Source information
This 290-nucleotide sequence from Thraustotheca clavata belongs to the Rfam family "Metazoan signal recognition particle RNA". The literature on the family includes a 2009 paper in RNA Biol by Rosenblad et al., "Kinship in the SRP RNA family". By type it is a non-coding RNA gene. Clan: SRP clan. About the family: The signal recognition particle (SRP) is a universally conserved ribonucleoprotein. NCBI's taxonomy places the organism under Eukaryota, Sar, Stramenopiles, Saprolegniomycetes, Thraustotheca.
[Rfam]
RNA sequence: ACCGGGUUGAGUGGCGUCAACUUGUAACAGCAAGCUUCUGGUUGGGUAGGGUUCUAUGAGGGUAUUGUCACUAAAGUGAGGGAGCUAUUCACGGCAUGUGGAGGGGUUGCCCAUUCCAAACCAGGAGUGAACAUUGUGAUAUGGUCGGAAGGCCGUAUAACGAGGUUCCUAAGGAUGUGUGCACCGCCUCAGGCUGGAUAACAGAGCAGGGAAAAGCAUACACUCUUGGUAGUGGAAGGAUCACGACCCUGAAUGCUGAUGCUCUCCGGCAAUCUUCCAGUAGAAAUCCG
Numbered sequence: 001a002c003c004g005g006g007u008u009g010a011g012u013g014g015c016g017u018c019a020a021c022u023u024g025u026a027a028c029a030g031c032a033a034g035c036u037u038c039u040g041g042u043u044g045g046g047u048a049g050g051g052u053u054c055u056a057u058g059a060g061g062g063u064a065u066u067g068u069c070a071c072u073a074a075a076g077u078g079a080g081g082g083a084g085c086u087a088u089u090c091a092c093g094g095c096a097u098g099u100g101g102a103g104g105g106g107u108u109g110c111c112c113a114u115u116c117c118a119a120a121c122c123a124g125g126a127g128u129g130a131a132c133a134u135u136g137u138g139a140u141a142u143g144g145u146c147g148g149a150a151g152g153c154c155g156u157a158u159a160a161c162g163a164g165g166u167u168c169c170u171a172a173g174g175a176u177g178u179g180u181g182c183a184c185c186g187c188c189u190c191a192g193g194c195u196g197g198a199u200a201a202c203a204g205a206g207c208a209g210g211g212a213a214a215a216g217c218a219u220a221c222a223c224u225c226u227u228g229g230u231a232g233u234g235g236a237a238g239g240a241u242c243a244c245g246a247c248c249c250u251g252a253a254u255g256c257u258g259a260u261g262c263u264c265u266c267c268g269g270c271a272a273u274c275u276u277c278c279a280g281u282a283g284a285a286a287u288c289c290g
Base pairs, nucleotide, nucleotide: 001047002046003045004023005022006021007020008019009018010017028044029043030042049288050287052285053284054283055282056281057280060278061277062276072269078267080266081265082264083263084262085261089259090258093257094256095255096254097253099251103250104249105248106247107246108245109244111239112238114237115236116235117234118233120230121229122228123227124226125225126224127223128222129168130167131166132165134163135162136161137160139158140157141156142155143154144153145152146151169173176220177219178218179217180216187211188210189209194204195203196202